Notes
Shown here is a 53-nucleotide sequence from Nannospalax galili, a member of the family "APC internal ribosome entry site (IRES)". The match comes from Rfam's covariance-model search (53 bits). About the family: This family represents an APC internal ribosome entry site (IRES) which is located in the coding sequence of the gene. APC is a tumour suppressor gene which is associated with the inherited disease adenomatous polyposis coli (APC).It is thought that IRES-mediated translation of APC is important for an apoptotic cascade. Lineage of the source: Eukaryota > Eumetazoa > Gnathostomata > Eutheria > Nannospalax. Pairs were carried over by alignment from the consensus structure, which is taken from published work.
[Rfam]
RNA sequence: AGCCUUCCUUUAACUGAAAAGUUUUCCUCACACACAGAUAUGACAUGGAGGUG
Dot-bracket structure: .((((((.....((((..................))).).......)))))).
Numbered sequence: 001a002g003c004c005u006u007c008c009u010u011u012a013a014c015u016g017a018a019a020a021g022u023u024u025u026c027c028u029c030a031c032a033c034a035c036a037g038a039u040a041u042g043a044c045a046u047g048g049a050g051g052u053g
Stems, first nucleotide, its partner, number of pairs: 002052006013039001014037003